Rfam assigns this 74-nucleotide RNA sequence from Ornithorhynchus anatinus to the family "mir-1421 microRNA precursor family". The organism belongs to Ornithorhynchus, within Eukaryota. Rfam's curators put it in the seed alignment. Rfam links the family to the GO terms RISC complex and miRNA-mediated post-transcriptional gene silencing.

RNA sequence: CUGUGUGAGGAGGACACAUGUGGUGCAGUAUGAUACUAGCAUAUGCUGCAUCAUGCGUGACCUCCCCACACCGU
Number, nucleotide and partner (000 for none) at each position: 001c000002u000003g071004u070005g069006u068007g067008a000009g065010g064011a063012g062013g061014a000015c059016a058017c057018a000019u055020g054021u053022g000023g051024u050025g049026c048027a047028g000029u000030a000031u000032g000033a000034u000035a000036c000037u000038a000039g000040c000041a000042u000043a000044u000045g000046c000047u027048g026049c025050a024051u023052c000053a021054u020055g019056c000057g017058u016059g015060a000061c013062c012063u011064c010065c009066c000067c007068a006069c005070a004071c003072c000073g000074u000